[Rfam]
Record summary: A member of the RNA family "Lnt RNA" from Chlorobaculum tepidum, 58 nucleotides long. Taxonomically the source falls in Chlorobaculum tepidum (Bacteria, Pseudomonadati, Chlorobiota, Chlorobiales). The sequence is in the family's curated seed alignment. The family's consensus secondary structure is taken from published work.
RNA sequence: CAGGAAAAACACUGGGUUGCUUCCUGUUAUAACAACUUGAAACAAAUUUAAAGAAUAA
Numbered sequence: 001c002a003g004g005a006a007a008a009a010c011a012c013u014g015g016g017u018u019g020c021u022u023c024c025u026g027u028u029a030u031a032a033c034a035a036c037u038u039g040a041a042a043c044a045a046a047u048u049u050a051a052a053g054a055a056u057a058a
Stems, first nucleotide, its partner, number of pairs: 001026006
Dot-bracket structure: ((((((..............))))))................................